A member of the RNA family "Plastid-clpP 5UTR RNA" from Ziziphus jujuba, 68 nucleotides long. The literature on the family includes a 2023 paper in Plant Commun by Richter et al., "Retrograde signaling in plants: A critical review focusing on the GUN pathway and beyond". The organism belongs to Ziziphus jujuba, within Eukaryota. The family has 343 seed sequences and 2,105 matches in Rfam 15.1. The family's RNA type in Rfam is cis-regulatory element. About the family: Plastid clpP is a non-coding RNA (ncRNA) recognised in plastids. It was found in the prime untranslated region (5UTR) of a protease complex subunit (clpP) in plastids, suggesting a posible cis-regulatory function.

[Rfam]
RNA sequence: AAUUUUGUUUGUAGGAACAAAAAGAAACAGAUAUAUUCUAUACCCAUUAAGUUCAAUACGCCAUUGAU
Numbered sequence: 001a002a003u004u005u006u007g008u009u010u011g012u013a014g015g016a017a018c019a020a021a022a023a024g025a026a027a028c029a030g031a032u033a034u035a036u037u038c039u040a041u042a043c044c045c046a047u048u049a050a051g052u053u054c055a056a057u058a059c060g061c062c063a064u065u066g067a068u
Base pairs, nucleotide, nucleotide: 003022004021006019007018008017009016010015044066051059052058